A member of the RNA family "Small nucleolar RNA snoR99" from Zea mays, 100 nucleotides long.
The literature on the family includes a 2002 paper in Curr Biol by Marker et al., "Experimental RNomics: identification of 140 candidates for small non-messenger RNAs in the plant Arabidopsis thaliana".
It is annotated as an H/ACA-box small nucleolar RNA.
The match comes from Rfam's covariance-model search (68 bits).
Its family is annotated with nucleolus and RNA processing in the Gene Ontology.
RNA sequence: CUGCGGCUGUGGGAUGAACAGGUCCCAACAUUUACUCCAUUUUUCACUUUGUCAGCUGAUGGGCAUAAAUGUUUAGCUGAUCAUUUAAAAUGGGAAAAUU
Numbered sequence: 001c002u003g004c005g006g007c008u009g010u011g012g013g014a015u016g017a018a019c020a021g022g023u024c025c026c027a028a029c030a031u032u033u034a035c036u037c038c039a040u041u042u043u044u045c046a047c048u049u050u051g052u053c054a055g056c057u058g059a060u061g062g063g064c065a066u067a068a069a070u071g072u073u074u075a076g077c078u079g080a081u082c083a084u085u086u087a088a089a090a091u092g093g094g095a096a097a098a099u100u
Stems, first nucleotide, its partner, number of pairs: 036094006051081008